[Rfam]
RNA sequence: UUGAAUAAAGCCACAACCGUCGUGAGGCGGUGUCGGAAAGCCACGGGUCUCAUUUGGAGAGACAGCCGGGUUGUCUGCU
Number, nucleotide and partner (000 for none) at each position: 001u000002u000003g000004a000005a000006u000007a000008a000009a000010g000011c036012c035013a000014c000015a000016a031017c030018c029019g028020u027021c026022g000023u000024g000025a000026g021027g020028c019029g018030g017031u016032g000033u000034c000035g012036g011037a000038a000039a072040g071041c070042c069043a000044c068045g067046g066047g063048u062049c061050u060051c059052a000053u057054u000055u000056g000057g053058a000059g051060a050061g049062a048063c047064a000065g000066c046067c045068g044069g042070g041071u040072u039073g000074u000075c000076u000077g000078c000079u000
c-di-GMP-I-UAU riboswitch aptamer: a 79-nucleotide RNA sequence from Candidatus Electrothrix marina. Its family is annotated with cyclic-di-GMP binding in the Gene Ontology. A reference for the family is Weinberg et al. (2017), "Bioinformatic analysis of riboswitch structures uncovers variant classes with altered ligand specificity", Proc Natl Acad Sci U S A. The match comes from Rfam's covariance-model search (68 bits). NCBI's taxonomy places the organism under Bacteria, Pseudomonadati, Desulfobulbia, Desulfobulbales, Candidatus Electrothrix. Clan: c-di-GMP_I riboswitch clan.